RNA sequence: CCUGCCGAGGAGCGUUGCGACCCAGGGAAUAUCGGGGCCAGGCUCGGCAUCGAACAACGGCGCUCACGAACC
Number, nucleotide and partner (000 for none) at each position: 001c000002c000003u049004g048005c047006c046007g045008a044009g000010g000011a000012g000013c000014g000015u000016u000017g000018c000019g000020a000021c037022c036023c035024a000025g033026g032027g000028a000029a000030u000031a000032u026033c025034g000035g023036g022037g021038c000039c000040a000041g000042g000043c000044u008045c007046g006047g005048c004049a003050u000051c000052g000053a000054a000055c000056a000057a000058c000059g000060g000061c000062g000063c000064u000065c000066a000067c000068g000069a000070a000071c000072c000
Shown here is a 72-nucleotide RNA sequence from Azospira inquinata, a member of the family "SAH (S-adenosyl-L-homocysteine) riboswitch aptamer".
NCBI's taxonomy places the organism under Bacteria, Pseudomonadati, Rhodocyclales, Rhodocyclaceae, Azospira.
A search with the family's covariance model found it, with a score of 64 bits.